Shown here is a 110-nucleotide RNA sequence from Agrobacterium sp. AGB01, a member of the family "Alphaproteobacterial ar15". The pairing is the family consensus, mapped onto this sequence. Gene Ontology term of the family: protein binding. It is annotated as a small RNA. A reference for the family is del Val et al. (2012), "A survey of sRNA families in alpha-proteobacteria", RNA Biol.
RNA sequence: AACCGAUGCACACGGCGAUCUCCUCCCGGGAUCGCAGCGUCGGUUGUUCCCCUCUGGAGGUUUUGAACCUUCAAACUUAUAGGCCGCGACUUUUGUCGACGGCCUUUUUU
Numbered sequence: 001a002a003c004c005g006a007u008g009c010a011c012a013c014g015g016c017g018a019u020c021u022c023c024u025c026c027c028g029g030g031a032u033c034g035c036a037g038c039g040u041c042g043g044u045u046g047u048u049c050c051c052c053u054c055u056g057g058a059g060g061u062u063u064u065g066a067a068c069c070u071u072c073a074a075a076c077u078u079a080u081a082g083g084c085c086g087c088g089a090c091u092u093u094u095g096u097c098g099a100c101g102g103c104c105u106u107u108u109u110u
Stems, first nucleotide, its partner, number of pairs: 001045005007039003015035004055073007081105006087098004